The family of this 103-nucleotide RNA is "Small nucleolar RNA Z279/snoR105/snoR108".
The family is grouped with related families in Rfam's "snoU13 clan".
The literature on the family includes a 2002 paper in Curr Biol by Marker et al., "Experimental RNomics: identification of 140 candidates for small non-messenger RNAs in the plant Arabidopsis thaliana".
Rfam's curators write: This family includes the plant snoRNAs known as Z279, snoR105 and snoR108.
A search with the family's covariance model found it, with a score of 94 bits.
The base pairs follow the family's consensus structure, which was predicted with PFOLD.
RNA sequence: GGGAUAUGAUGAGUGGUAAAUACUCGCAAUUAAAUAUGCGAGAUGGGUGUCUGCCUAGCCUGUUACGACAAUGGGGCACUCCCUUCUUAACCAAUCUGAUCCC
Numbered sequence: 001g002g003g004a005u006a007u008g009a010u011g012a013g014u015g016g017u018a019a020a021u022a023c024u025c026g027c028a029a030u031u032a033a034a035u036a037u038g039c040g041a042g043a044u045g046g047g048u049g050u051c052u053g054c055c056u057a058g059c060c061u062g063u064u065a066c067g068a069c070a071a072u073g074g075g076g077c078a079c080u081c082c083c084u085u086c087u088u089a090a091c092c093a094a095u096c097u098g099a100u101c102c103c
Stems, first nucleotide, its partner, number of pairs: 001103004014093004023042005045081007060074004